MIR2617 microRNA precursor family: an 85-nucleotide RNA from Medicago truncatula. Rfam links the family to the GO terms miRNA-mediated post-transcriptional gene silencing and RISC complex. The source organism's lineage runs through Eukaryota, Streptophyta, fabids, Papilionoideae and Medicago. The match comes from Rfam's covariance-model search (64 bits). The base pairs follow the family's consensus structure, which was predicted with RNAalifold.
RNA sequence: AAGUAGUGUGACAUGCCCGUUUGGGAUUUACUCUGAUGAUUAUUUAAUACUUAAUUGCUUUGGGAUUACGGGGUGUUACAAUUGG
Numbered sequence: 001a002a003g004u005a006g007u008g009u010g011a012c013a014u015g016c017c018c019g020u021u022u023g024g025g026a027u028u029u030a031c032u033c034u035g036a037u038g039a040u041u042a043u044u045u046a047a048u049a050c051u052u053a054a055u056u057g058c059u060u061u062g063g064g065a066u067u068a069c070g071g072g073g074u075g076u077u078a079c080a081a082u083u084g085g
Stems, first nucleotide, its partner, number of pairs: 005082001007080008016072005